[Rfam]
RNA sequence: CUCUUAUCUAGAGUGGCUGAGGGACUGGCCCGAAGACGCCCGGCAACCUUCAAACAGCGGUUUGAAAGGUGCCAAUUCCUGCAAAGCAGUAUUUGCUUUGAAAGAUGAGAG
Numbered sequence: 001c002u003c004u005u006a007u008c009u010a011g012a013g014u015g016g017c018u019g020a021g022g023g024a025c026u027g028g029c030c031c032g033a034a035g036a037c038g039c040c041c042g043g044c045a046a047c048c049u050u051c052a053a054a055c056a057g058c059g060g061u062u063u064g065a066a067a068g069g070u071g072c073c074a075a076u077u078c079c080u081g082c083a084a085a086g087c088a089g090u091a092u093u094u095g096c097u098u099u100g101a102a103a104g105a106u107g108a109g110a111g
Stems, first nucleotide, its partner, number of pairs: 001111008013041001015040003021031003025081001027079002042073004047069002049066004077103001082100006
RNA: SAM riboswitch aptamer (S box leader)
Organism: Tenuibacillus multivorans